[Rfam]
RNA sequence: ACCACGCCUAGUCCGGCCAGACGAAAACGGGACCCCUUCACCCGCUGGCGUGGUGCCUACCAUGAAGG
Numbered sequence: 001a002c003c004a005c006g007c008c009u010a011g012u013c014c015g016g017c018c019a020g021a022c023g024a025a026a027a028c029g030g031g032a033c034c035c036c037u038u039c040a041c042c043c044g045c046u047g048g049c050g051u052g053g054u055g056c057c058u059a060c061c062a063u064g065a066a067g068g
Stems, first nucleotide, its partner, number of pairs: 001054008011022003028044004035068006